[Rfam]
RNA sequence: GGAUUGAGAGAGAAAUAACGUAAGAAUAAAUUUAUUUCCUUACUUGCAUGAGUAGGUUUUAACCUUUAUCUUAUUAAAAGAAGCAUCAGUGAACUUUUAGGGUUAUUAAAAUAUGGCCAUGUAUCCUUUACAAAUAUAAUAUAUGAGUAAAAGGAUUUCGUGUCACUUCCGCUAAAAUGGUUGUAUAACGAGCUAUUUUUAUAAUCCGGUUUACUGAGGUUUAUUAAAAUCUUUGGGCCCUUUGCCCAUAUUGAUUUGAGUUGCUUCUAAAAAGCACUUUCUUAACCCACUCGUCUUGAAACACGG
Numbered sequence: 001g002g003a004u005u006g007a008g009a010g011a012g013a014a015a016u017a018a019c020g021u022a023a024g025a026a027u028a029a030a031u032u033u034a035u036u037u038c039c040u041u042a043c044u045u046g047c048a049u050g051a052g053u054a055g056g057u058u059u060u061a062a063c064c065u066u067u068a069u070c071u072u073a074u075u076a077a078a079a080g081a082a083g084c085a086u087c088a089g090u091g092a093a094c095u096u097u098u099a100g101g102g103u104u105a106u107u108a109a110a111a112u113a114u115g116g117c118c119a120u121g122u123a124u125c126c127u128u129u130a131c132a133a134a135u136a137u138a139a140u141a142u143a144u145g146a147g148u149a150a151a152a153g154g155a156u157u158u159c160g161u162g163u164c165a166c167u168u169c170c171g172c173u174a175a176a177a178u179g180g181u182u183g184u185a186u187a188a189c190g191a192g193c194u195a196u197u198u199u200u201a202u203a204a205u206c207c208g209g210u211u212u213a214c215u216g217a218g219g220u221u222u223a224u225u226a227a228a229a230u231c232u233u234u235g236g237g238c239c240c241u242u243u244g245c246c247c248a249u250a251u252u253g254a255u256u257u258g259a260g261u262u263g264c265u266u267c268u269a270a271a272a273a274g275c276a277c278u279u280u281c282u283u284a285a286c287c288c289a290c291u292c293g294u295c296u297u298g299a300a301a302c303a304c305g306g
Stems, first nucleotide, its partner, number of pairs: 001288002004285009022075002025072002028069001080267006291306004